This 136-nucleotide RNA from Symbiodinium sp. CCMP2592 belongs to the Rfam family "U4 spliceosomal RNA". U4 small nuclear RNA (U4 snRNA) is a component of the major U2-dependent spliceosome. It is annotated as a spliceosomal small nuclear RNA. The base pairs follow the family's consensus structure, which is taken from published work.

[Rfam]
RNA sequence: AUCCUUGCGGAAGGGGCAAUAGCGCUAUCAGUGACGCUUAGCGGAGGUGCGCUGUUUGCUAGUAGAAAACUACUCCAAUUCCCGUCAAGUUUGAUCGUCAAGGUCAUUCUUGCAAUUUUUACGUGGGCUUCGGCCC
Numbered sequence: 001a002u003c004c005u006u007g008c009g010g011a012a013g014g015g016g017c018a019a020u021a022g023c024g025c026u027a028u029c030a031g032u033g034a035c036g037c038u039u040a041g042c043g044g045a046g047g048u049g050c051g052c053u054g055u056u057u058g059c060u061a062g063u064a065g066a067a068a069a070c071u072a073c074u075c076c077a078a079u080u081c082c083c084g085u086c087a088a089g090u091u092u093g094a095u096c097g098u099c100a101a102g103g104u105c106a107u108u109c110u111u112g113c114a115a116u117u118u119u120u121a122c123g124u125g126g127g128c129u130u131c132g133g134c135c136c
Base pairs, nucleotide, nucleotide: 021053022052023051024050025049027048028047029046035043036042037041084113086112087111088110089109092106093105094104095103096102125136126135127134128133